[Rfam]
RNA sequence: UUACGAUAAUGGCAAACCUGCCAAAAGACAGGGACGCAAAGCCACAGGCCUAAGACAGAAAUGUUAUGGCGGCUGGGUUACCGAA
Numbered sequence: 001u002u003a004c005g006a007u008a009a010u011g012g013c014a015a016a017c018c019u020g021c022c023a024a025a026a027g028a029c030a031g032g033g034a035c036g037c038a039a040a041g042c043c044a045c046a047g048g049c050c051u052a053a054g055a056c057a058g059a060a061a062u063g064u065u066a067u068g069g070c071g072g073c074u075g076g077g078u079u080a081c082c083g084a085a
Stems, first nucleotide, its partner, number of pairs: 012037002017032004022027001040079004045075003048070003055064003
A member of the RNA family "c-di-GMP-I riboswitch aptamer" from Bacillus sp. T33-2, 85 nucleotides long. Gene Ontology term of the family: cyclic-di-GMP binding. A search with the family's covariance model found it, with a score of 83 bits. The family's consensus secondary structure is taken from published work.